[Rfam]
RNA sequence: AAAUCUUGAGGGCAAACCCGUUGAAAAAUGGGGACGCAAAGCCACCGGCCUAAAGCGCAUCUGCGCCAUGGUAGCGGGGUUGCCGGU
Numbered sequence: 001a002a003a004u005c006u007u008g009a010g011g012g013c014a015a016a017c018c019c020g021u022u023g024a025a026a027a028a029u030g031g032g033g034a035c036g037c038a039a040a041g042c043c044a045c046c047g048g049c050c051u052a053a054a055g056c057g058c059a060u061c062u063g064c065g066c067c068a069u070g071g072u073a074g075c076g077g078g079g080u081u082g083c084c085g086g087u
Stems, first nucleotide, its partner, number of pairs: 012037002017032006040081004045077003048072003055066004

A member of the RNA family "c-di-GMP-I riboswitch aptamer" from Undibacterium sp. KW1, 87 nucleotides long. Lineage of the source: Bacteria > Pseudomonadati > Pseudomonadota > Betaproteobacteria > Undibacterium.